[Rfam]
RNA sequence: AUCUUUGCGCUUGGGGCAAUGAUGCAGCUUGUGAGGUUCUAACCGAGGCGCGUCUAUUGCUGGUUGAAAACUAUUUCCAGACCUCCUCUUCGGCCUGGGCUUGACUUGGGUUGUUGAGAAUUUUUGGAAGGGCUCCCUUUUUGUGUUAGGCC
Dot-bracket structure: ....................(((((.(((.....(((....)))..))))))))...............................(((..(((((((((.....)))))))))..)))............((((..............))))
Numbered sequence: 001a002u003c004u005u006u007g008c009g010c011u012u013g014g015g016g017c018a019a020u021g022a023u024g025c026a027g028c029u030u031g032u033g034a035g036g037u038u039c040u041a042a043c044c045g046a047g048g049c050g051c052g053u054c055u056a057u058u059g060c061u062g063g064u065u066g067a068a069a070a071c072u073a074u075u076u077c078c079a080g081a082c083c084u085c086c087u088c089u090u091c092g093g094c095c096u097g098g099g100c101u102u103g104a105c106u107u108g109g110g111u112u113g114u115u116g117a118g119a120a121u122u123u124u125u126g127g128a129a130g131g132g133c134u135c136c137c138u139u140u141u142u143g144u145g146u147u148a149g150g151c152c
Stems, first nucleotide, its partner, number of pairs: 021054005027049003035044003086118003091113009131152004
This 152-nucleotide RNA from Salvia splendens belongs to the Rfam family "U4 spliceosomal RNA". About the family: U4 small nuclear RNA (U4 snRNA) is a component of the major U2-dependent spliceosome. Rfam 15.1 lists 32,178 matches to the family in 2,547 species. The base pairs follow the family's consensus structure, which is taken from published work. The organism belongs to core Calosphace, within Eukaryota.